[Rfam]
RNA sequence: AUUCAUACCUUGUAGGGGAGAUACCAUGUCGUAAAAAUGGGUUUCCCAGGGAGAGGCUCAUCCAUUGCACUUUGGGUGUGGUGUUGACCCCAGUGAUUUCCCCAAAUGUGGGGAACUCAACUACACAAUUUGUAUUAAUGAGGGCAUUAUGGUUUGUGAUUUCUCU
Numbered sequence: 001a002u003u004c005a006u007a008c009c010u011u012g013u014a015g016g017g018g019a020g021a022u023a024c025c026a027u028g029u030c031g032u033a034a035a036a037a038u039g040g041g042u043u044u045c046c047c048a049g050g051g052a053g054a055g056g057c058u059c060a061u062c063c064a065u066u067g068c069a070c071u072u073u074g075g076g077u078g079u080g081g082u083g084u085u086g087a088c089c090c091c092a093g094u095g096a097u098u099u100c101c102c103c104a105a106a107u108g109u110g111g112g113g114a115a116c117u118c119a120a121c122u123a124c125a126c127a128a129u130u131u132g133u134a135u136u137a138a139u140g141a142g143g144g145c146a147u148u149a150u151g152g153u154u155u156g157u158g159a160u161u162u163c164u165c166u
Stems, first nucleotide, its partner, number of pairs: 012124004016047006024040004049091003053088001055085003059081001060079002062076002094119003097115003101111002141166004146162001149160002152157001